[Rfam]
RNA sequence: CGUUUAUCUCAGGGCGGGGUGUAAGUCCCCACCGGCGGUAACAUCAGUCAAUGAUCUUGCUAUCAUUUGAGCUGGUGAAGCCCGCGAGCGCUUUAUAGUGGUGUUUAGACAAUUCAUUAUAAAGGUCAGCAGAUCCAGUGAAAUCCUGGAGCCGACGGUUAUAGUCCGGAUGGGAGAGAAUAACA
Dot-bracket structure: ..((..((((......(((.......))).[[((((((...........................................))))..((.......................................))...(((((.......)))))..)).(((.....]]))).......))))..))..

Record summary:
This 185-nucleotide RNA sequence from Moellerella wisconsensis belongs to the Rfam family "FMN riboswitch aptamer (RFN element)". The RFN element is a highly conserved domain that is found frequently in the 5'-untranslated regions of prokaryotic mRNAs that encode for flavin mononucleotide (FMN) biosynthesis and transport proteins. Taxonomically the source falls in Moellerella wisconsensis (Bacteria, Pseudomonadota, Gammaproteobacteria, Moellerella). A search with the family's covariance model found it, with a score of 101 bits.